[Rfam]
RNA sequence: CCAGCGGGCCGGGCCCCUCUGGCGAGAUUGACGUCCCCCUUCGUCGCUCGUGAUGUCGGACCGCAUCG
Numbered sequence: 001c002c003a004g005c006g007g008g009c010c011g012g013g014c015c016c017c018u019c020u021g022g023c024g025a026g027a028u029u030g031a032c033g034u035c036c037c038c039c040u041u042c043g044u045c046g047c048u049c050g051u052g053a054u055g056u057c058g059g060a061c062c063g064c065a066u067c068g
Stems, first nucleotide, its partner, number of pairs: 006062002009059004022051005030045003

The record is a 68-nucleotide RNA from Sphingobium nicotianae, which matches "terC RNA" in Rfam. By type it is a cis-regulatory element. Taxonomically the source falls in Sphingobium (Bacteria, Pseudomonadati, Pseudomonadota, Alphaproteobacteria).